Source information:
The record is a 139-nucleotide RNA sequence, which matches "TPP riboswitch aptamer (THI element)" in Rfam. Vitamin B(1) in its active form thiamin pyrophosphate (TPP) is an essential coenzyme that is synthesised by coupling of pyrimidine and thiazole moieties in bacteria. The previously detected thiamin-regulatory element, thi box was extended, resulting in a new, highly conserved RNA secondary structure, the THI element, which is widely distributed in eubacteria and also occurs in some archaea. Analysis of operon structures identified a large number of new candidate thiamin-regulated genes, mostly transporters, in various prokaryotic organisms. The THI element is a riboswitch that directly binds to TPP to regulate gene expression through a variety of mechanisms in archaea, bacteria and eukaryotes. through a variety of mechanisms in archaea, bacteria and eukaryotes. The base pairs follow the family's consensus structure, which is taken from published work. It scores 62 bits against the family's covariance model.
RNA sequence: UGUAUCAGCGAGGGGUGCCUACGGCGCCUCGCCCAUGAAUCUUGCGUUCAUGAAUAUGGCGGGCGCGUCCAGGCUGAGAUUAUACCCUUUCUACCUGAUCCGGUUCGUACCGGCGGAGGGACUGCUGUUGUCAUGUGAA
Number, nucleotide and partner (000 for none) at each position: 001u000002g000003u000004a000005u000006c127007a126008g125009c124010g123011a088012g087013g086014g085015g000016u082017g074018c073019c072020u071021a000022c000023g000024g000025c000026g000027c000028c000029u000030c000031g000032c000033c000034c000035a000036u000037g000038a000039a000040u000041c000042u000043u000044g000045c000046g000047u000048u000049c000050a000051u000052g000053a000054a000055u000056a000057u000058g000059g000060c000061g000062g000063g000064c000065g000066c000067g000068u000069c000070c000071a020072g019073g018074c017075u000076g000077a000078g000079a000080u000081u000082a016083u000084a000085c014086c013087c012088u011089u000090u000091c000092u000093a000094c119095c118096u117097g000098a000099u000100c113101c112102g111103g110104u000105u000106c000107g000108u000109a000110c103111c102112g101113g100114c000115g000116g000117a096118g095119g094120g000121a000122c000123u010124g009125c008126u007127g006128u000129u000130g000131u000132c000133a000134u000135g000136u000137g000138a000139a000